[Rfam]
RNA sequence: UUCGAUAAGGGCAAACCCGUCGAAAGGCGGGGGCGCAAAGCCACGGGCCUAAAUCCCUGAUUGGGACAUGGUAGCCGGGCUGCCGAAG
Number, nucleotide and partner (000 for none) at each position: 001u088002u000003c085004g084005a000006u000007a000008a000009g000010g000011g036012c035013a000014a000015a000016c031017c030018c029019g028020u027021c026022g000023a000024a000025a000026g021027g020028c019029g018030g017031g016032g000033g000034c074035g012036c011037a000038a000039a081040g080041c079042c078043a000044c077045g076046g075047g072048c071049c070050u000051a000052a000053a000054u000055c000056c000057c000058u000059g000060a000061u000062u000063g000064g000065g000066a000067c000068a000069u000070g049071g048072u047073a000074g034075c046076c045077g044078g042079g041080c040081u039082g000083c000084c004085g003086a000087a000088g001
A member of the RNA family "c-di-GMP-I-GGC riboswitch aptamer" from Caldanaerobacter subterraneus, 88 nucleotides long. Taxonomically the source falls in Caldanaerobacter subterraneus subsp. tengcongensis (Bacteria, Clostridia, Thermoanaerobacteraceae, Caldanaerobacter).